[Rfam]
The record is a 137-nucleotide sequence from Anguilla anguilla, which matches "U11 spliceosomal RNA" in Rfam.

RNA sequence: AAAAAGGGCGUGUACCGUGACUGGUACAGGGAAGGGGUGGGAAACUGCUCCCUCUCUGCGGAAUCUAUAUCAAGAGAUUUCGGACGCACAAUUUUUGUGUACUCGGGCUGCCGAUGAUCGUGUAUCUUGGCGCCCCU
Number, nucleotide and partner (000 for none) at each position: 001a000002a000003a000004a000005a000006g000007g000008g087009c086010g085011u084012g000013u026014a025015c024016c023017g022018u000019g000020a000021c000022u017023g016024g015025u014026a013027c058028a057029g056030g055031g054032a053033a000034g051035g050036g049037g048038u047039g000040g000041g000042a000043a000044a000045c000046u000047g038048c037049u036050c035051c034052c000053u032054c031055u030056c029057u028058g027059c082060g081061g080062a079063a078064u077065c076066u000067a000068u000069a000070u000071c000072a000073a000074g000075a000076g065077a064078u063079u062080u061081c060082g059083g000084a011085c010086g009087c008088a000089c000090a000091a000092u000093u000094u000095u000096u000097g000098u000099g000100u000101a000102c000103u000104c000105g135106g134107g133108c132109u000110g131111c130112c129113g128114a127115u000116g126117a125118u124119c000120g000121u000122g000123u000124a118125u117126c116127u114128u113129g112130g111131c110132g108133c107134c106135c105136c000137u000